[Rfam]
RNA sequence: GAAACCAGUUCACUUCACACGGAUCGUCUGGCGCGUGCCCGCCAGGAAGGAAACACCAU
Numbered sequence: 001g002a003a004a005c006c007a008g009u010u011c012a013c014u015u016c017a018c019a020c021g022g023a024u025c026g027u028c029u030g031g032c033g034c035g036u037g038c039c040c041g042c043c044a045g046g047a048a049g050g051a052a053a054c055a056c057c058a059u
Stems, first nucleotide, its partner, number of pairs: 010051002013049004028045006
A member of the RNA family "msiK RNA" from Agrococcus casei, 59 nucleotides long. Rfam classes the family as a cis-regulatory element.